[Rfam]
RNA: Burkholderia RNA 7 (anti-hemB)
Organism: Hydromonas duriensis
RNA sequence: UCCCCCGCUUUUCCUCCCUAAGCGGGGUGGUCAGAAAUGACGUUUAGCCUCAAGUUUUUAACUUGAGGCUUUUUUU
Numbered sequence: 001u002c003c004c005c006c007g008c009u010u011u012u013c014c015u016c017c018c019u020a021a022g023c024g025g026g027g028u029g030g031u032c033a034g035a036a037a038u039g040a041c042g043u044u045u046a047g048c049c050u051c052a053a054g055u056u057u058u059u060a061a062c063u064u065g066a067g068g069c070u071u072u073u074u075u076u
Stems, first nucleotide, its partner, number of pairs: 004026006030041003048068008